[Rfam]
Nucleotides: 095
Base pairs, nucleotide, nucleotide: 009039010038011037014034015033016032018030020028021027022026068088069087070086071085072084073083074082
Number, partner (000 for none) and nucleotide at each position: 001000c002000u003000u004000a005000u006000u007000u008000g009039g010038u011037g012000g013000c014034a015033c016032g017000g018030c019000u020028c021027c022026u023000c024000a025000c026022g027021g028020g029000c030018g031000g032016u033015g034014u035000g036000a037011c038010g039009c040000g041000c042000u043000g044000u045000a046000u047000a048000g049000a050000c051000a052000g053000c054000c055000a056000u057000c058000c059000u060000a061000u062000u063000c064000a065000c066000a067000a068088c069087g070086c071085c072084c073083g074082c075000c076000a077000c078000u079000g080000a081000u082074g083073c084072g085071g086070g087069c088068g089000u090000u091000u092000u093000u094000g095000u

Annotation
This 95-nucleotide RNA sequence from Salinivibrio sp. KP-1 belongs to the Rfam family "Tryptophan operon leader". At least 6 amino acid operons are known to be regulated by attenuation. By type it is a cis-regulatory leader.